[Rfam]
RNA sequence: GAAAAAUGAAGAUAUUCUGAUUGCUUCCUAUGAUUACAGUGAAGACUUCAGAUCCAACUCUGAUUUCACUCUCGUU
Dot-bracket structure: ((((...........................................................)))).........
Rfam assigns this 76-nucleotide sequence from Centropus unirufus to the family "Small nucleolar RNA SNORD19". Its Rfam clan is "SNORD19 clan". NCBI's taxonomy places the organism under Eukaryota, Opisthokonta, Archosauria, Neoaves, Centropus. The family has 22 seed sequences and 1,431 matches in Rfam 15.1. The pairing is the family consensus, mapped onto this sequence. The literature on the family includes a 2001 paper in EMBO J by Huttenhofer et al., "RNomics: an experimental approach that identifies 201 candidates for novel, small, non-messenger RNAs in mouse". Rfam classes the family as a C/D-box small nucleolar RNA.